[Rfam]
RNA: Y RNA-like
RNA sequence: GCAGCGAAUGCCUUGGGUACUACAUUGUGUCGCGGGUUCGAGCCCCGUCAGCCGCAAGGCUGUAGCUCAGUCGAUAGAGCAAAUGUGCCCAUCAACUCGUCGCUGCACG
Numbered sequence: 001g002c003a004g005c006g007a008a009u010g011c012c013u014u015g016g017g018u019a020c021u022a023c024a025u026u027g028u029g030u031c032g033c034g035g036g037u038u039c040g041a042g043c044c045c046c047g048u049c050a051g052c053c054g055c056a057a058g059g060c061u062g063u064a065g066c067u068c069a070g071u072c073g074a075u076a077g078a079g080c081a082a083a084u085g086u087g088c089c090c091a092u093c094a095a096c097u098c099g100u101c102g103c104u105g106c107a108c109g
Stems, first nucleotide, its partner, number of pairs: 002105006014091006025083002032048005049062005065080004